[Rfam]
RNA sequence: UUUUGAUGCCCUUCAUUCCACCGGAAUCUGUACUGGCAGAAAUCCGGAUUUCAGUGAAAUGAGGAACAUUAGAAC
Numbered sequence: 001u002u003u004u005g006a007u008g009c010c011c012u013u014c015a016u017u018c019c020a021c022c023g024g025a026a027u028c029u030g031u032a033c034u035g036g037c038a039g040a041a042a043u044c045c046g047g048a049u050u051u052c053a054g055u056g057a058a059a060u061g062a063g064g065a066a067c068a069u070u071a072g073a074a075c
Stems, first nucleotide, its partner, number of pairs: 011064006019056003023052004028047003
Dot-bracket structure: ..........((((((..(((.((((.(((..............))).)))).)))..))))))...........
The family of this 75-nucleotide RNA from Callorhinchus milii is "mir-205 microRNA precursor family". The literature on the family includes a 2003 paper in Science by Lim et al., "Vertebrate microRNA genes". Taxonomically the source falls in Callorhinchus (Eukaryota, Bilateria, Vertebrata, Gnathostomata).